[Rfam]
The record is a 177-nucleotide sequence from Mangrovibacillus cuniculi, which matches "Lysine riboswitch aptamer" in Rfam. Lineage of the source: Bacteria > Bacillati > Bacillota > Bacillaceae > Mangrovibacillus. Rfam links the family to the GO term lysine biosynthetic process. The family's consensus secondary structure is taken from published work.
RNA sequence: UGUGUAGAUAGAGGUGCGAGAAAUGAAAAGUACUUGUUUGGAGAAGGAUAAGCUUCGAAGAAAAACAGGGAAAGGCAUGAUCGCCGAAGAAACAAAGAACUUAUCACUACUGUUUCUGGUAAAACGCUGAAUAAGCUAUUUACUGUCAAGGGCUGACCUUGGAGUGCUAUCACACCU
Numbered sequence: 001u002g003u004g005u006a007g008a009u010a011g012a013g014g015u016g017c018g019a020g021a022a023a024u025g026a027a028a029a030g031u032a033c034u035u036g037u038u039u040g041g042a043g044a045a046g047g048a049u050a051a052g053c054u055u056c057g058a059a060g061a062a063a064a065a066c067a068g069g070g071a072a073a074g075g076c077a078u079g080a081u082c083g084c085c086g087a088a089g090a091a092a093c094a095a096a097g098a099a100c101u102u103a104u105c106a107c108u109a110c111u112g113u114u115u116c117u118g119g120u121a122a123a124a125c126g127c128u129g130a131a132u133a134a135g136c137u138a139u140u141u142a143c144u145g146u147c148a149a150g151g152g153c154u155g156a157c158c159u160u161g162g163a164g165u166g167c168u169a170u171c172a173c174a175c176c177u
Stems, first nucleotide, its partner, number of pairs: 007171005016084004023078003033069007088117007097110001099108001118144006126136003146162006